[Rfam]
RNA sequence: GGGCGCAGUGGUUUAUCGAUCUCUUCCUUGCCUUGUGCUAGUCCAGAAGUAGUGGUGGUUCAAGCGUUUAUUGCUGCAAUAACUUGCAAAACAACGCGGGAAUCGAUCGAUAAACCUCUGCAUCCAG
Numbered sequence: 001g002g003g004c005g006c007a008g009u010g011g012u013u014u015a016u017c018g019a020u021c022u023c024u025u026c027c028u029u030g031c032c033u034u035g036u037g038c039u040a041g042u043c044c045a046g047a048a049g050u051a052g053u054g055g056u057g058g059u060u061c062a063a064g065c066g067u068u069u070a071u072u073g074c075u076g077c078a079a080u081a082a083c084u085u086g087c088a089a090a091a092c093a094a095c096g097c098g099g100g101a102a103u104c105g106a107u108c109g110a111u112a113a114a115c116c117u118c119u120g121c122a123u124c125c126a127g
Stems, first nucleotide, its partner, number of pairs: 001125003005121004010116012024102005030097002033094003